[Rfam]
Record summary
Rfam assigns this 76-nucleotide RNA from Crocodylus porosus to the family "Mammalian CPEB3 ribozyme". Rfam describes the family as follows. The mammalian CPEB3 ribozyme is a self cleaving RNA located in the second intron of the CPEB3 gene which belongs to a family of genes regulating messenger RNA polyadenylation. This ribozyme is highly conserved and found only in mammals. The CPEB3 ribozyme is structurally and biochemically related to the human hepatitis delta virus (HDV) ribozyme and the HDV ribozyme is proposed to have arisen from the human transcriptome. Gene Ontology term of the family: RNA nuclease activity.

RNA sequence: AAAGGAGGUGCAAGGCUAUAGGAGAAGUGCUCCCAGCGCAGCCCUUUCAGAUUCCAGCAAGUCUGCAAAUUCUGCU
Numbered sequence: 001a002a003a004g005g006a007g008g009u010g011c012a013a014g015g016c017u018a019u020a021g022g023a024g025a026a027g028u029g030c031u032c033c034c035a036g037c038g039c040a041g042c043c044c045u046u047u048c049a050g051a052u053u054c055c056a057g058c059a060a061g062u063c064u065g066c067a068a069a070u071u072c073u074g075c076u
Base pairs, nucleotide, nucleotide: 014043015042016041017040020076021075023073024072025071026070027039028038029037048065049064050063051062052061053060